[Rfam]
RNA sequence: GGACUCCUAGCGCCGAAUCAUGGGUUUCCCAUGUACGGGGGAUUAAAGGGUAUUCCCCUUGGUGAAUCGUGCUCAUGACACGUAGGGCUCCUUCUGCCCGAACCGACAACUAACCUCGGAGGCAAUUCACGAAGGAAGG
Numbered sequence: 001g002g003a004c005u006c007c008u009a010g011c012g013c014c015g016a017a018u019c020a021u022g023g024g025u026u027u028c029c030c031a032u033g034u035a036c037g038g039g040g041g042a043u044u045a046a047a048g049g050g051u052a053u054u055c056c057c058c059u060u061g062g063u064g065a066a067u068c069g070u071g072c073u074c075a076u077g078a079c080a081c082g083u084a085g086g087g088c089u090c091c092u093u094c095u096g097c098c099c100g101a102a103c104c105g106a107c108a109a110c111u112a113a114c115c116u117c118g119g120a121g122g123c124a125a126u127u128c129a130c131g132a133a134g135g136a137a138g139g
Stems, first nucleotide, its partner, number of pairs: 012123003019033006036118005045060002061104002068082004085099004
This 139-nucleotide RNA from Sulfobacillus harzensis belongs to the Rfam family "c-di-AMP riboswitch aptamer (ydaO/yuaA leader)". The match comes from Rfam's covariance-model search (68 bits).